[Rfam]
RNA sequence: UUAGGUUUUUUCAUUUUCUUCUGGAAUUUUUCUCGAAUUAUUGUUGUUGAAGGUUGAUGGAGAUGAUAUGAAGAUGAAGAAGAUGAGAAG
Numbered sequence: 001u002u003a004g005g006u007u008u009u010u011u012c013a014u015u016u017u018c019u020u021c022u023g024g025a026a027u028u029u030u031u032c033u034c035g036a037a038u039u040a041u042u043g044u045u046g047u048u049g050a051a052g053g054u055u056g057a058u059g060g061a062g063a064u065g066a067u068a069u070g071a072a073g074a075u076g077a078a079g080a081a082g083a084u085g086a087g088a089a090g
Stems, first nucleotide, its partner, number of pairs: 005084005010078009036055004041050002